[Rfam]
RNA sequence: GGCUCCUGAGGUGGUCAAUUUCGUAGCUACCACGCACCCUAUGGGUUAAAAGAGAUGCAGGGGAACGCCACGCCUGCCAGGAGCC
Numbered sequence: 001g002g003c004u005c006c007u008g009a010g011g012u013g014g015u016c017a018a019u020u021u022c023g024u025a026g027c028u029a030c031c032a033c034g035c036a037c038c039c040u041a042u043g044g045g046u047u048a049a050a051a052g053a054g055a056u057g058c059a060g061g062g063g064a065a066c067g068c069c070a071c072g073c074c075u076g077c078c079a080g081g082a083g084c085c
Base pairs, nucleotide, nucleotide: 001085002084003083004082005081006080007079008078011033012032013031014030015029023071024070026068027067035052036046037045038044039043057077058076059075060074061073
Shown here is an 85-nucleotide sequence, a member of the family "skipping-rope RNA". By type it is a small RNA.